[Rfam]
RNA sequence: UUAAAAGCUUUGAUUAGGAGUAGUAAUAUUACCUCAUAGCCUAAAGAGAGUUGUGGUUUGCUGUGACACAAUGGUAUGAAAAUAUGAACUUGCCUAUGAGCAUAUGUGUGAAAAAAAGCACAUACGGGAAAAACCCGUUAUAAAAUCGAGUGAGGAAAAGAAAUUUUCCUAAUAAGAGUGGUACCGCGAAUAUCCUUUCGUCUCUUAA
Numbered sequence: 001u002u003a004a005a006a007g008c009u010u011u012g013a014u015u016a017g018g019a020g021u022a023g024u025a026a027u028a029u030u031a032c033c034u035c036a037u038a039g040c041c042u043a044a045a046g047a048g049a050g051u052u053g054u055g056g057u058u059u060g061c062u063g064u065g066a067c068a069c070a071a072u073g074g075u076a077u078g079a080a081a082a083u084a085u086g087a088a089c090u091u092g093c094c095u096a097u098g099a100g101c102a103u104a105u106g107u108g109u110g111a112a113a114a115a116a117a118g119c120a121c122a123u124a125c126g127g128g129a130a131a132a133a134c135c136c137g138u139u140a141u142a143a144a145a146u147c148g149a150g151u152g153a154g155g156a157a158a159a160g161a162a163a164u165u166u167u168c169c170u171a172a173u174a175a176g177a178g179u180g181g182u183a184c185c186g187c188g189a190a191u192a193u194c195c196u197u198u199c200g201u202c203u204c205u206u207a208a
Base pairs, nucleotide, nucleotide: 007101008100015096016095017094018093026085027084028083029082030081039075040074041073050072051071052070053069054068055067104123105122106121107120108119109118125137126136127135153170154169155168156167157166158165159164175205176204177203178202186201187200188199189198190197
RNA: T-box leader